RNA: mir-15 microRNA precursor family
Organism: Pleuronectes platessa
RNA sequence: CCUUAGACUGCUAUAGCAGCGCAUCAUGGUUUGAAACGAUGUGGAAAAGUUGCGAACCAUAAUUUGCUGCUUUAGAAUUUUAAGG
Numbered sequence: 001c002c003u004u005a006g007a008c009u010g011c012u013a014u015a016g017c018a019g020c021g022c023a024u025c026a027u028g029g030u031u032u033g034a035a036a037c038g039a040u041g042u043g044g045a046a047a048a049g050u051u052g053c054g055a056a057c058c059a060u061a062a063u064u065u066g067c068u069g070c071u072u073u074a075g076a077a078u079u080u081u082a083a084g085g
Stems, first nucleotide, its partner, number of pairs: 001085006013073001015071007023063002026060008035051002
Dot-bracket structure: ((((((......(.(((((((.((.((((((((.((.............)).)))))))).)).))))))).)......))))))